Rfam assigns this 80-nucleotide RNA sequence from Tribolium castaneum to the family "drz-agam-1 ribozyme". The base pairs follow the family's consensus structure, which is taken from published work. It scores 38 bits against the family's covariance model.
[Rfam]
RNA sequence: UCCUGGCAAAAAUGCUCUAAACCUCCACGUGGUUCUUGCUGGACAAAUUAGUUAUUAGCUAAUUUGACCAAUUAGAGCAA
Numbered sequence: 001u002c003c004u005g006g007c008a009a010a011a012a013u014g015c016u017c018u019a020a021a022c023c024u025c026c027a028c029g030u031g032g033u034u035c036u037u038g039c040u041g042g043a044c045a046a047a048u049u050a051g052u053u054a055u056u057a058g059c060u061a062a063u064u065u066g067a068c069c070a071a072u073u074a075g076a077g078c079a080a
Base pairs, nucleotide, nucleotide: 013079014078015077016076017075018074019073020072021033022032023031044066045065046064047063048062049061050060051059052058